[Rfam]
RNA: Small nucleolar RNA U61
Organism: Musa balbisiana
RNA sequence: UGGCUAUGAAGAAACUCAAACUAUCUGCCGGAGAUGGAUCUGUCCAUCGCUGACGGCGACAGAAACCCUCUAAGAAGUUCCGAGCCG
Dot-bracket structure: ((((...............................................................................))))